[Rfam]
RNA sequence: CGACAACCGACCAGGGACCAACUGCAGACGGAGAACUGGAGAGAAAGCGAAGGAAGAGCCCUCAGGGUGAAAGCGUUAUAAAGAGUUAACGAUAAAAAAUAGCUUUAUAACCCACCAAGGAUGGAGAGAUAGCAUCCAAGGAGCUAAAGAGAAAUCUCACUUUAGACACCUGGGGAACUCGAAUGAAAAGA
Number, nucleotide and partner (000 for none) at each position: 001c049002g048003a000004c000005a000006a000007c000008c000009g000010a000011c039012c038013a037014g036015g000016g000017a000018c000019c000020a000021a000022c000023u000024g000025c000026a000027g000028a000029c000030g000031g000032a000033g000034a000035a000036c014037u013038g012039g011040a000041g000042a000043g000044a000045a000046a000047g000048c002049g001050a000051a000052g000053g000054a000055a000056g000057a000058g000059c000060c000061c174062u173063c172064a171065g170066g169067g000068u000069g000070a000071a000072a000073g000074c000075g111076u110077u109078a108079u107080a106081a105082a104083g103084a000085g000086u000087u000088a000089a000090c000091g000092a000093u000094a000095a000096a000097a000098a000099a000100u000101a000102g000103c083104u082105u081106u080107a079108u078109a077110a076111c075112c000113c000114a000115c000116c000117a000118a000119g137120g136121a135122u134123g133124g000125a000126g158127a157128g156129a155130u154131a000132g000133c123134a122135u121136c120137c119138a000139a000140g000141g000142a000143g000144c165145u164146a163147a162148a161149g160150a000151g000152a000153a000154a130155u129156c128157u127158c126159a000160c149161u148162u147163u146164a145165g144166a000167c000168a000169c066170c065171u064172g063173g062174g061175g000176a000177a000178c000179u000180c000181g000182a000183a000184u000185g000186a000187a000188a000189a000190g000191a000
This 191-nucleotide RNA sequence belongs to the Rfam family "IMES-1 RNA motif". On this family, see Weinberg et al., Nature 2009: "Exceptional structured noncoding RNAs revealed by bacterial metagenome analysis". Pairs were carried over by alignment from the consensus structure, which is taken from published work.